[Rfam]
RNA sequence: GACAAAUCGAAGAUGGGGAGGAGUACACCGCUUAAACCCUGCAGAGAGGCAACCCUCGGCUGAAAGGUUGCUGGGUGAUCCGGUGGAAAGUCGCCCCGGAGUGCCGUUAUGCGGCCGGUAUGGGUCCGUUAUCGCCCGUAGAGUGCUUUUUCAUCCCUCUGAGAGUGGAAUGAAAGAACAAAGGUGGUACCACGGAGCAUUCCGUCCUUUGA
Numbered sequence: 001g002a003c004a005a006a007u008c009g010a011a012g013a014u015g016g017g018g019a020g021g022a023g024u025a026c027a028c029c030g031c032u033u034a035a036a037c038c039c040u041g042c043a044g045a046g047a048g049g050c051a052a053c054c055c056u057c058g059g060c061u062g063a064a065a066g067g068u069u070g071c072u073g074g075g076u077g078a079u080c081c082g083g084u085g086g087a088a089a090g091u092c093g094c095c096c097c098g099g100a101g102u103g104c105c106g107u108u109a110u111g112c113g114g115c116c117g118g119u120a121u122g123g124g125u126c127c128g129u130u131a132u133c134g135c136c137c138g139u140a141g142a143g144u145g146c147u148u149u150u151u152c153a154u155c156c157c158u159c160u161g162a163g164a165g166u167g168g169a170a171u172g173a174a175a176g177a178a179c180a181a182a183g184g185u186g187g188u189a190c191c192a193c194g195g196a197g198c199a200u201u202c203c204g205u206c207c208u209u210u211g212a
Stems, first nucleotide, its partner, number of pairs: 008101001015097004026085005037075003048072006104114004116128003146176005181209004192205005
Overview
A member of the RNA family "T-box leader" from Heliobacterium mobile, 212 nucleotides long. Pairs were carried over by alignment from the consensus structure, which is taken from published work. It scores 100 bits against the family's covariance model. The family's RNA type in Rfam is cis-regulatory leader. Lineage of the source: Bacteria > Bacillati > Clostridia > Heliobacteriaceae > Heliobacterium.